[Rfam]
RNA sequence: AUAUUUCUUCGGGGCAACGUGUGAUUCGUGACCGGUGGUAACCAGUGAGAAUUAGAAAUUAAAAAGCUGGAAGCCCACGAGCUUUAAUUAGCUGAUCUGGUGAGAUUCCAGAGCCGACAGUAUAGUCUGGAUGGAAGAGGAAAAAG
Numbered sequence: 001a002u003a004u005u006u007c008u009u010c011g012g013g014g015c016a017a018c019g020u021g022u023g024a025u026u027c028g029u030g031a032c033c034g035g036u037g038g039u040a041a042c043c044a045g046u047g048a049g050a051a052u053u054a055g056a057a058a059u060u061a062a063a064a065a066g067c068u069g070g071a072a073g074c075c076c077a078c079g080a081g082c083u084u085u086a087a088u089u090a091g092c093u094g095a096u097c098u099g100g101u102g103a104g105a106u107u108c109c110a111g112a113g114c115c116g117a118c119a120g121u122a123u124a125g126u127c128u129g130g131a132u133g134g135a136a137g138a139g140g141a142a143a144a145a146g
Stems, first nucleotide, its partner, number of pairs: 004143007017029003031126002033116002035078004073114002081092003096112005118129003
RNA: FMN riboswitch aptamer (RFN element)
Organism: Eubacterium ruminantium